[Rfam]
RNA sequence: UGUCACGAGUGCCAGUGCGAAGCCCCGGCUUGCUGGCCGGCAACCCUCCUCCGCGGUGGGGUGCCCCGGGUGAGGACACGGCCUCCUGCGCACCGCAGGUCGGCAAGCGCGGACU
Numbered sequence: 001u002g003u004c005a006c007g008a009g010u011g012c013c014a015g016u017g018c019g020a021a022g023c024c025c026c027g028g029c030u031u032g033c034u035g036g037c038c039g040g041c042a043a044c045c046c047u048c049c050u051c052c053g054c055g056g057u058g059g060g061g062u063g064c065c066c067c068g069g070g071u072g073a074g075g076a077c078a079c080g081g082c083c084u085c086c087u088g089c090g091c092a093c094c095g096c097a098g099g100u101c102g103g104c105a106a107g108c109g110c111g112g113a114c115u
Stems, first nucleotide, its partner, number of pairs: 001078004009038001011037006021030002039065003044061003048056002081104003085099006

Rfam assigns this 115-nucleotide RNA from Nocardioides sp. Root190 to the family "SAM (S-adenosyl methionine) riboswitch aptamer".
The base pairs follow the family's consensus structure, which is taken from published work.
The match comes from Rfam's covariance-model search (103 bits).